[Rfam]
RNA sequence: GCCACUGCGAUGGGAGAACCGGCUUGCCGGUGCCGAAGGAGCAACCGCCCCGGAAACUCUCAGGCUCAAGGACCUUCGCGGGACC
Numbered sequence: 001g002c003c004a005c006u007g008c009g010a011u012g013g014g015a016g017a018a019c020c021g022g023c024u025u026g027c028c029g030g031u032g033c034c035g036a037a038g039g040a041g042c043a044a045c046c047g048c049c050c051c052g053g054a055a056a057c058u059c060u061c062a063g064g065c066u067c068a069a070g071g072a073c074c075u076u077c078g079c080g081g082g083a084c085c
Stems, first nucleotide, its partner, number of pairs: 006080005012074002019030004032065003035061002039059003045053002
RNA: Glycine riboswitch aptamer